Shown here is a 129-nucleotide sequence from Conger conger, a member of the family "Small nucleolar RNA SNORA55". ACA55 is a member of the H/ACA class of snoRNA that guide the sites of modification of uridines to pseudouridines. It scores 57 bits against the family's covariance model. The family has 29 seed sequences and 1,476 matches in Rfam 15.1. The family's RNA type in Rfam is H/ACA-box small nucleolar RNA. The base pairs follow the family's consensus structure, which was predicted with PFOLD.
RNA sequence: GCACCCCAGCAAACCCUACUCUUCUGUGUCAGUGCUGGGCUAGGGUAAUGAUGGUGCCAUAGUGAUCCAAAGUGUAUCCAGAUGGGCCUCCGCUACAUUGAAGCUUGUCUCUACAACUUUGACACAGUG
Number, nucleotide and partner (000 for none) at each position: 001g057002c056003a055004c054005c053006c000007c000008a000009g000010c000011a000012a000013a046014c045015c044016c043017u042018a041019c000020u000021c038022u037023u000024c000025u000026g000027u000028g000029u000030c000031a000032g000033u000034g000035c000036u000037g022038g021039g000040c000041u018042a017043g016044g015045g014046u013047a000048a000049u000050g000051a000052u000053g005054g004055u003056g002057c001058c000059a000060u000061a000062g000063u000064g000065a000066u000067c000068c121069a120070a119071a118072g117073u000074g000075u000076a000077u000078c000079c000080a110081g109082a108083u107084g106085g105086g104087c103088c000089u101090c100091c000092g000093c000094u000095a000096c000097a000098u000099u000100g090101a089102a000103g087104c086105u085106u084107g083108u082109c081110u080111c000112u000113a000114c000115a000116a000117c072118u071119u070120u069121g068122a000123c000124a000125c000126a000127g000128u000129g000